MIR2912 microRNA precursor family: a 154-nucleotide RNA from Populus alba. The family's consensus secondary structure was predicted with RNAalifold. Lineage of the source: Eukaryota > Streptophyta > Streptophytina > Saliceae > Populus.
[Rfam]
RNA sequence: UAGAACUCGAGAUAUGGGCUAAACACUGAACAAUGUCUAGGCUGUAGGAUAGAUUCGGACUUCUCCGUUGUUGCUAUAAUUUGGACUUGAAAACGACCUUUUUAAAUUUUGGACUCCACAUGAAAGUUGUAGGCCUAUGUCUUACCAAAUUUUU
Number, nucleotide and partner (000 for none) at each position: 001u000002a154003g153004a152005a151006c000007u147008c000009g143010a142011g141012a140013u139014a138015u137016g136017g135018g134019c132020u131021a130022a000023a128024c000025a127026c126027u125028g000029a000030a000031c000032a000033a121034u120035g119036u000037c000038u000039a000040g116041g115042c000043u113044g000045u000046a110047g109048g108049a107050u106051a000052g103053a102054u000055u000056c000057g098058g097059a000060c000061u095062u000063c000064u000065c000066c000067g000068u000069u000070g086071u085072u084073g000074c000075u000076a000077u000078a000079a000080u000081u000082u000083g000084g072085a071086c070087u000088u000089g000090a000091a000092a000093a000094c000095g061096a000097c058098c057099u000100u000101u000102u053103u052104a000105a000106a050107u049108u048109u047110u046111g000112g000113a043114c000115u041116c040117c000118a000119c035120a034121u033122g000123a000124a000125a027126g026127u025128u023129g000130u021131a020132g019133g000134c018135c017136u016137a015138u014139g013140u012141c011142u010143u009144a000145c000146c000147a007148a000149a000150u000151u005152u004153u003154u002